[Rfam]
RNA sequence: UGGGUGUUUACUGGACGCAGCGGUUUAUCGAUCUUUUCCUGGCCUUGUUGUUUCUGAUUUUGGGGGAGUUCUCAGAUAGGAAAGAGUGCGAGGUUACAAAGCGAGAAUCGAUCGAUAAACCUCUGCAUCCGGCUCCCACCUU
Numbered sequence: 001u002g003g004g005u006g007u008u009u010a011c012u013g014g015a016c017g018c019a020g021c022g023g024u025u026u027a028u029c030g031a032u033c034u035u036u037u038c039c040u041g042g043c044c045u046u047g048u049u050g051u052u053u054c055u056g057a058u059u060u061u062g063g064g065g066g067a068g069u070u071c072u073c074a075g076a077u078a079g080g081a082a083a084g085a086g087u088g089c090g091a092g093g094u095u096a097c098a099a100a101g102c103g104a105g106a107a108u109c110g111a112u113c114g115a116u117a118a119a120c121c122u123c124u125g126c127a128u129c130c131g132g133c134u135c136c137c138a139c140c141u142u
Base pairs, nucleotide, nucleotide: 013130014129015128018125019124020123022121023120024119025118027116028115029114030113031112032111033110036107037106038105
Annotation:
Rfam assigns this 142-nucleotide RNA from Dendrobium nobile to the family "MIR162_1 microRNA precursor family". A reference for the family is Reinhart et al. (2002), "MicroRNAs in plants", Genes Dev. Rfam 15.1 lists 270 matches to the family in 158 species. Rfam links the family to the GO terms miRNA-mediated post-transcriptional gene silencing and RISC complex. NCBI's taxonomy places the organism under Eukaryota, Mesangiospermae, Asparagales, Orchidaceae, Dendrobium. It scores 78 bits against the family's covariance model.